[Rfam]
RNA sequence: CCUUGACAAGGGCAUACCCGCCGAAAGACGGGGACGCAAAACCACCGAUCUAAGGGGCGUUUAGUCCUACGAUAGCGGGGCUACCGAA
Numbered sequence: 001c002c003u004u005g006a007c008a009a010g011g012g013c014a015u016a017c018c019c020g021c022c023g024a025a026a027g028a029c030g031g032g033g034a035c036g037c038a039a040a041a042c043c044a045c046c047g048a049u050c051u052a053a054g055g056g057g058c059g060u061u062u063a064g065u066c067c068u069a070c071g072a073u074a075g076c077g078g079g080g081c082u083a084c085c086g087a088a
Base pairs, nucleotide, nucleotide: 012037013036017032018031019030020029022027040082042080043079045078046077047076048073049072050071055067056066057065058064
A member of the RNA family "c-di-GMP-I riboswitch aptamer" from Woeseia oceani, 88 nucleotides long. A search with the family's covariance model found it, with a score of 80 bits. The base pairs follow the family's consensus structure, which is taken from published work. The source organism's lineage runs through Bacteria, Pseudomonadota, Gammaproteobacteria, Woeseiales and Woeseia.